[Rfam]
RNA sequence: UUCAGGGGUGAGCUCUCGCGGUUCGGCGCUUGCGCCGGGUCGAGGAAAGUCCGGACACCACAGGGCAGGAUUCCCGGUGAAAACCGGGGCAGGGCGGCGCGAGCCAGCCUUGACGGCACAGUGCCACAGAAAACGUACCGCCUCGCGCUCCGGCGCGGGGUAAGGGUGAAAAGGUGGGGUAAGAGCCCACCGCCGCUGCGGGUAACCGCGCGGGCAGGGUAAACCCAAUCCGGUGCAAGACAAUGUAGGGGACCGGGCGGCCCGUCCAUACGGUCCCGGGUAGGUCGCAUCCCUUCGGGGAGACGCGUGCAAGCGCGUCAGAUAAAUGAGAGCAGCCGCUUCGGCGGUAACAGAAUCCGGCUUAUGAUCCCCUGAUCUUU
Numbered sequence: 001u002u003c004a005g006g007g008g009u010g011a012g013c014u015c016u017c018g019c020g021g022u023u024c025g026g027c028g029c030u031u032g033c034g035c036c037g038g039g040u041c042g043a044g045g046a047a048a049g050u051c052c053g054g055a056c057a058c059c060a061c062a063g064g065g066c067a068g069g070a071u072u073c074c075c076g077g078u079g080a081a082a083a084c085c086g087g088g089g090c091a092g093g094g095c096g097g098c099g100c101g102a103g104c105c106a107g108c109c110u111u112g113a114c115g116g117c118a119c120a121g122u123g124c125c126a127c128a129g130a131a132a133a134c135g136u137a138c139c140g141c142c143u144c145g146c147g148c149u150c151c152g153g154c155g156c157g158g159g160g161u162a163a164g165g166g167u168g169a170a171a172a173g174g175u176g177g178g179g180u181a182a183g184a185g186c187c188c189a190c191c192g193c194c195g196c197u198g199c200g201g202g203u204a205a206c207c208g209c210g211c212g213g214g215c216a217g218g219g220u221a222a223a224c225c226c227a228a229u230c231c232g233g234u235g236c237a238a239g240a241c242a243a244u245g246u247a248g249g250g251g252a253c254c255g256g257g258c259g260g261c262c263c264g265u266c267c268a269u270a271c272g273g274u275c276c277c278g279g280g281u282a283g284g285u286c287g288c289a290u291c292c293c294u295u296c297g298g299g300g301a302g303a304c305g306c307g308u309g310c311a312a313g314c315g316c317g318u319c320a321g322a323u324a325a326a327u328g329a330g331a332g333c334a335g336c337c338g339c340u341u342c343g344g345c346g347g348u349a350a351c352a353g354a355a356u357c358c359g360g361c362u363u364a365u366g367a368u369c370c371c372c373u374g375a376u377c378u379u380u
Base pairs, nucleotide, nucleotide: 002375003374004373005372006371007370008369011365012333013332014331015330016329017328019042020041021040022039023038024037025036026035027034047363048362049361051360052359053358054357055356056235057234058233059232063263064262065261066260068231069230070229071228072227073088074087075086076085077084089114090112091111092110093109094108095107115226116225121224122223123220124219125218138165139164140161141160142159143158144157145156146155147154148153173191174190175189176188177187178186192215193213194212195211196210198209199208200207201206239286240285241284249277250276251275252274253273254272255267256266257265258264304317305316306315307314308313